[Rfam]
RNA sequence: GACAUCUCUCAGGGGGUCAUUGUAGAAGCGUGCUCGUUUCGACCCCUGCCAGCCCUUUUCAGGGCUGCAAUUAUACA
Numbered sequence: 001g002a003c004a005u006c007u008c009u010c011a012g013g014g015g016g017u018c019a020u021u022g023u024a025g026a027a028g029c030g031u032g033c034u035c036g037u038u039u040c041g042a043c044c045c046c047u048g049c050c051a052g053c054c055c056u057u058u059u060c061a062g063g064g065c066u067g068c069a070a071u072u073a074u075a076c077a
Stems, first nucleotide, its partner, number of pairs: 013046006021077004026072002028040001030038001050067007
The family of this 77-nucleotide sequence from Parnassius apollo is "Mammalian CPEB3 ribozyme".